[Rfam]
RNA sequence: GUGCAUCCCGAGGAAUGAACCUACGAAUUGCCAAUAUGAGUUGGGCGCUUUAACCAUUCAGCCAUGGAUGC
Numbered sequence: 001g002u003g004c005a006u007c008c009c010g011a012g013g014a015a016u017g018a019a020c021c022u023a024c025g026a027a028u029u030g031c032c033a034a035u036a037u038g039a040g041u042u043g044g045g046c047g048c049u050u051u052a053a054c055c056a057u058u059c060a061g062c063c064a065u066g067g068a069u070g071c
Base pairs, nucleotide, nucleotide: 003071004070005069006068007067008066010024011022012021013020036065037064038063040062041061042060043059044058045057047055
RNA: Plastid-ycf2 5UTR RNA
Organism: Musa balbisiana